A member of the RNA family "Potassium channel RNA editing signal" from Dreissena polymorpha, 114 nucleotides long.
Rfam describes the family as follows. This family represents a group of sequences related to the human potassium channel Kv1.1 hairpin element which directs the efficient modification of an adenosine to inosine by an adenosine deaminase acting on RNA (ADAR). The ADAR modification causes an isoleucine/valine recoding event which lies in the ion-conducting pore of the potassium channel. It is thought that this editing event targets the process of fast inactivation and allows a more rapid recovery from inactivation at negative potentials.
It is annotated as a cis-regulatory element.
Rfam links the family to the GO term adenosine to inosine editing.
Lineage of the source: Eukaryota > Autobranchia > Heteroconchia > Dreissenoidea > Dreissena.
[Rfam]
RNA sequence: GUAGGAUAUGGUGAUAUGCGUCCAAUAGGGGUGUGGGGAAAGUUGGUAGGGUCACUUUGUGCCAUUGCUGGUGUGUUGACAAUCGCUUUGCCUGUGCCUGUUAUUGUUUCCAAC
Numbered sequence: 001g002u003a004g005g006a007u008a009u010g011g012u013g014a015u016a017u018g019c020g021u022c023c024a025a026u027a028g029g030g031g032u033g034u035g036g037g038g039a040a041a042g043u044u045g046g047u048a049g050g051g052u053c054a055c056u057u058u059g060u061g062c063c064a065u066u067g068c069u070g071g072u073g074u075g076u077u078g079a080c081a082a083u084c085g086c087u088u089u090g091c092c093u094g095u096g097c098c099u100g101u102u103a104u105u106g107u108u109u110c111c112a113a114c
Stems, first nucleotide, its partner, number of pairs: 001114002004111002008107004013102004018097004037077002040074001049063002